[Rfam]
RNA sequence: UCGAGAUAACGGCAAACUAAUCGAAAGAAUAGGACGCAAAGCUACAGAUCUAAGGUCUUGUGUGACUAGGAUGGCUGAGCUGCCUCA
Numbered sequence: 001u002c003g004a005g006a007u008a009a010c011g012g013c014a015a016a017c018u019a020a021u022c023g024a025a026a027g028a029a030u031a032g033g034a035c036g037c038a039a040a041g042c043u044a045c046a047g048a049u050c051u052a053a054g055g056u057c058u059u060g061u062g063u064g065a066c067u068a069g070g071a072u073g074g075c076u077g078a079g080c081u082g083c084c085u086c087a
Stems, first nucleotide, its partner, number of pairs: 012037002017032003021028002040081004045077003048072003055066003